RNA sequence: CGAGUCAGCCAGGCAAUCGCUCUUUCACCUGGAAGAGAGGAAAGUCCGGGCUCCACAGGGUAAGGCGCCAGAUAACGUCUGGGAAGCGUGAGCUUACGGAAAGUGCCACAGAAAAUAUACCGCCCCGCGUUUGCGGGGUAAGGGUGAAAUGGUGCGGUAAGAGCGCACCGCGUAACUGGCAACAGUUGCGGCAGGGCAAACCCCGCCUGGAGUAAGGCCAAAUAGGAACUCGAUAGCGUGACCCGCGCUGAGUUUGGGUAGGCUGCAUGAGGUGCCUGGCGACAGGCAUCCCAGAUUAAUGAUUGCCCCCGACAGAACCCGGCUUACCGGCUGACUCAAAAA
Dot-bracket structure: .(((((((((.(((((((.(((((((....)))))))....[[[.[[[[[((((...[[[[.((((((((((.....)))))(((((....)))).)((...(((((............(((((((((....)))))))..)).......((((((.......))))))(((((((((....)))))))).)..)))..)))))))))))))...((((......((((((...(((((.]]]]))))))))))).....))))......((((((((....))))))))..........)))))))..........]]]]]]]]...))))))))).....
RNA: Bacterial RNase P class A
Organism: Aquicella siphonis